Small nucleolar RNA Z105: a 69-nucleotide RNA sequence from Paspalum vaginatum. A reference for the family is Chen et al. (2003), "The high diversity of snoRNAs in plants: identification and comparative study of 120 snoRNA genes from Oryza sativa", Nucleic Acids Res.
[Rfam]
RNA sequence: CUGGUAUAAUGAGGAAAACCUAUAUUUUUCUGAUCUAUAUGAUAGAGGAAUACCUCCUACUCAUUCUGA
Numbered sequence: 001c002u003g004g005u006a007u008a009a010u011g012a013g014g015a016a017a018a019c020c021u022a023u024a025u026u027u028u029u030c031u032g033a034u035c036u037a038u039a040u041g042a043u044a045g046a047g048g049a050a051u052a053c054c055u056c057c058u059a060c061u062c063a064u065u066c067u068g069a
Stems, first nucleotide, its partner, number of pairs: 006064002009061001028047002030041001
A search with the family's covariance model found it, with a score of 62 bits. The base pairs follow the family's consensus structure, which was predicted with CMfinder.